This 125-nucleotide sequence from Schaalia canis belongs to the Rfam family "FMN riboswitch aptamer (RFN element)". Taxonomically the source falls in Schaalia (Bacteria, Actinomycetota, Actinomycetes, Actinomycetales). Its family is annotated with FMN binding in the Gene Ontology.
[Rfam]
RNA sequence: GGAACGUUCCGGGGUCGGUGAAAGUCCGAACCGGCGGUGAUAGUCCGCGACCCGUGCAACAUUGUGCGGUUGAGCUGGUGAAAUUCCAGCACCGACGGUUAAAGUCCGGAUGGGAGGAACGCGAG
Numbered sequence: 001g002g003a004a005c006g007u008u009c010c011g012g013g014g015u016c017g018g019u020g021a022a023a024g025u026c027c028g029a030a031c032c033g034g035c036g037g038u039g040a041u042a043g044u045c046c047g048c049g050a051c052c053c054g055u056g057c058a059a060c061a062u063u064g065u066g067c068g069g070u071u072g073a074g075c076u077g078g079u080g081a082a083a084u085u086c087c088a089g090c091a092c093c094g095a096c097g098g099u100u101a102a103a104g105u106c107c108g109g110a111u112g113g114g115a116g117g118a119a120c121g122c123g124a125g
Base pairs, nucleotide, nucleotide: 005121006120007119008118009117010116016028017027018026030105031104032094033093034048035047036046037045043092044091052069053068074090075089076088077087078086096108097107098106